[Rfam]
RNA: S10-Clostridia ribosomal protein leader
RNA sequence: UGAUAGUGUAGAUCCGGGAGGUUGCAUCAGAAUGCUAUCCGAGAUAGGUUCUGAGGGAUUUCCGGGGAGCGAAUGUCAAGUUCAAGAAACUGACGGCAA
Number, nucleotide and partner (000 for none) at each position: 001u000002g000003a000004u000005a000006g000007u000008g000009u000010a000011g000012a000013u000014c065015c064016g063017g000018g062019a061020g060021g059022u000023u000024g000025c056026a000027u054028c053029a052030g051031a050032a049033u048034g000035c000036u000037a000038u000039c000040c000041g000042a000043g000044a000045u000046a000047g000048g033049u032050u031051c030052u029053g028054a027055g000056g025057g000058a000059u021060u020061u019062c018063c016064g015065g014066g000067g000068a000069g000070c000071g000072a000073a000074u098075g097076u096077c095078a000079a000080g094081u000082u093083c092084a091085a000086g000087a000088a000089a000090c000091u084092g083093a082094c080095g077096g076097c075098a074099a000